Shown here is a 203-nucleotide RNA from Dendrobium catenatum, a member of the family "small nucleolar RNA snoR127". The match comes from Rfam's covariance-model search (45 bits). Its family is annotated with nucleolus and RNA processing in the Gene Ontology. By type it is a C/D-box small nucleolar RNA.
[Rfam]
RNA sequence: CUGGGAUGAUGCAAAAUAGCCAAAUCAGACAUCUUAGUGCUCCUUUAGGCCAUUUGUUGCAAGCUUUUCUCUUGUGCUUAUGUGGAAGCACCUUCUUGGUAGCUUUUGCAUAGAGUGCUUUUUUGGGCAUGUGAACAAGUUGCCUUUAGUAGAAGCGCUUAGCUCUGAUGAUUAAAACUGAGAUUGGUUCCCUGCUGACCAGU
Numbered sequence: 001c002u003g004g005g006a007u008g009a010u011g012c013a014a015a016a017u018a019g020c021c022a023a024a025u026c027a028g029a030c031a032u033c034u035u036a037g038u039g040c041u042c043c044u045u046u047a048g049g050c051c052a053u054u055u056g057u058u059g060c061a062a063g064c065u066u067u068u069c070u071c072u073u074g075u076g077c078u079u080a081u082g083u084g085g086a087a088g089c090a091c092c093u094u095c096u097u098g099g100u101a102g103c104u105u106u107u108g109c110a111u112a113g114a115g116u117g118c119u120u121u122u123u124u125g126g127g128c129a130u131g132u133g134a135a136c137a138a139g140u141u142g143c144c145u146u147u148a149g150u151a152g153a154a155g156c157g158c159u160u161a162g163c164u165c166u167g168a169u170g171a172u173u174a175a176a177a178c179u180g181a182g183a184u185u186g187g188u189u190c191c192c193u194g195c196u197g198a199c200c201a202g203u
Stems, first nucleotide, its partner, number of pairs: 001202004